[Rfam]
RNA sequence: GGUUAAUACCCAAUUGCUAAAGGUAAUUGAGUGCUCUGACCAUUUUUCGAAAUGUGUUAGUGUCAAUUUUUGGAUCGCUCUCUCGGGGUUUCCGGUUGAGCAAA
Number, nucleotide and partner (000 for none) at each position: 001g000002g000003u000004u000005a000006a000007u000008a000009c000010c031011c000012a000013a028014u000015u025016g024017c023018u000019a000020a000021a000022g000023g017024u016025a015026a000027u000028u013029g000030a000031g010032u000033g000034c000035u000036c000037u059038g058039a057040c056041c054042a053043u052044u051045u050046u000047u000048c000049g000050a045051a044052a043053u042054g041055u000056g040057u039058u038059a037060g000061u000062g000063u000064c000065a000066a000067u000068u000069u000070u000071u000072g000073g000074a000075u000076c000077g000078c000079u102080c000081u100082c000083u098084c000085g096086g000087g093088g092089u000090u000091u000092c088093c087094g000095g000096u085097u000098g083099a000100g081101c000102a079103a000104a000

About this RNA
Shown here is a 104-nucleotide sequence from Caenorhabditis auriculariae, a member of the family "SL2 RNA". The base pairs follow the family's consensus structure, which is taken from published work. The literature on the family includes a 2000 paper in Mol Cell Biol by Evans and Blumenthal, "trans splicing of polycistronic Caenorhabditis elegans pre-mRNAs: analysis of the SL2 RNA". It is annotated as a non-coding RNA gene. Rfam's curators write: This family represents SL2 RNA. SL2 RNA is involved in trans splicing in lower eukaryotes. Trans-splicing is a form of RNA processing. The acquisition of a spliced leader from a SL RNA is a intra-molecular reaction which precisely joins exons derived from separately transcribed RNAs. Approximately 25% of C. elegans genes are organised into polycistronic transcription units and the presence of SL2 on an mRNA is an indication the the gene is in an operon. The match comes from Rfam's covariance-model search (44 bits).